[Rfam]
RNA sequence: GCAAGCUAAAGACAGUUACUGGUUAUUCGUUAACUAAGGAAACUCCAUCCAUCACACAGAACUAUAGUGUUGAAAGACACAUGCUGAGAAGUAUGACUCUGGAGCAGAAACGGCACGUCUUUUAAUGAAUGAAUAUGAUAGCUAUUGCUUGAUCGACAUGAAAAGAAUCGGUGAAACGGCCAUUCUAUAGGAUGCAAGGGCAAAGCUGCUGAUAAUCCACUGUGGUAGGCAAGGUAGUCCGCGUAGAUGAAUACUGUAUAAAACAGAAGAUGGGUUACUCUUAGCAUGC
Numbered sequence: 001g002c003a004a005g006c007u008a009a010a011g012a013c014a015g016u017u018a019c020u021g022g023u024u025a026u027u028c029g030u031u032a033a034c035u036a037a038g039g040a041a042a043c044u045c046c047a048u049c050c051a052u053c054a055c056a057c058a059g060a061a062c063u064a065u066a067g068u069g070u071u072g073a074a075a076g077a078c079a080c081a082u083g084c085u086g087a088g089a090a091g092u093a094u095g096a097c098u099c100u101g102g103a104g105c106a107g108a109a110a111c112g113g114c115a116c117g118u119c120u121u122u123u124a125a126u127g128a129a130u131g132a133a134u135a136u137g138a139u140a141g142c143u144a145u146u147g148c149u150u151g152a153u154c155g156a157c158a159u160g161a162a163a164a165g166a167a168u169c170g171g172u173g174a175a176a177c178g179g180c181c182a183u184u185c186u187a188u189a190g191g192a193u194g195c196a197a198g199g200g201c202a203a204a205g206c207u208g209c210u211g212a213u214a215a216u217c218c219a220c221u222g223u224g225g226u227a228g229g230c231a232a233g234g235u236a237g238u239c240c241g242c243g244u245a246g247a248u249g250a251a252u253a254c255u256g257u258a259u260a261a262a263a264c265a266g267a268a269g270a271u272g273g274g275u276u277a278c279u280c281u282u283a284g285c286a287u288g289c
Stems, first nucleotide, its partner, number of pairs: 001289003005285005010279002012257005020036005041276003045273005050194004055224005062190005067080005081094005095185002100182003116170002119165005125159002140149002198240004207231004
The family of this 289-nucleotide RNA sequence from Candidatus Methanobinarius endosymbioticus is "Archaeal RNase P". Rfam's curators write: Ribonuclease P (RNase P) is a ubiquitous endoribonuclease, found in archaea, bacteria and eukarya as well as chloroplasts and mitochondria. Its best characterised activity is the generation of mature 5'-ends of tRNAs by cleaving the 5'-leader elements of precursor-tRNAs. Cellular RNase Ps are ribonucleoproteins. RNA from bacterial RNase Ps retains its catalytic activity in the absence of the protein subunit, i.e. it is a ribozyme. The family is grouped with related families in Rfam's "RNaseP clan". Pairs were carried over by alignment from the consensus structure, which is taken from published work. The match comes from Rfam's covariance-model search (189 bits). For this family Rfam cites "Ribonuclease P: unity and diversity in a tRNA processing ribozyme" (Frank and Pace, Annu Rev Biochem, 1998).